[Rfam]
RNA: c-di-AMP riboswitch aptamer (ydaO/yuaA leader)
Organism: Streptomyces harbinensis
RNA sequence: GUCACGGAAACGCAGUCCUUCCCCAUGACAGGAGCGGGGGACCCACUUCCCGCCGGACCGCUCACCCGCGGACCGGCUCGGGGUGAAGCCGCCGCCGUACGGCUCGUCCGCACGGCAGUGGCCGGGCUACUUCUCCGGCCCGAACCCGACAGCUCACCUCGCAGGCGAUGAGAGGAGCC
Numbered sequence: 001g002u003c004a005c006g007g008a009a010a011c012g013c014a015g016u017c018c019u020u021c022c023c024c025a026u027g028a029c030a031g032g033a034g035c036g037g038g039g040g041a042c043c044c045a046c047u048u049c050c051c052g053c054c055g056g057a058c059c060g061c062u063c064a065c066c067c068g069c070g071g072a073c074c075g076g077c078u079c080g081g082g083g084u085g086a087a088g089c090c091g092c093c094g095c096c097g098u099a100c101g102g103c104u105c106g107u108c109c110g111c112a113c114g115g116c117a118g119u120g121g122c123c124g125g126g127c128u129a130c131u132u133c134u135c136c137g138g139c140c141c142g143a144a145c146c147c148g149a150c151a152g153c154u155c156a157c158c159u160c161g162c163a164g165g166c167g168a169u170g171a172g173a174g175g176a177g178c179c
Stems, first nucleotide, its partner, number of pairs: 011167003016033003034162006044080001081147003089121004124141004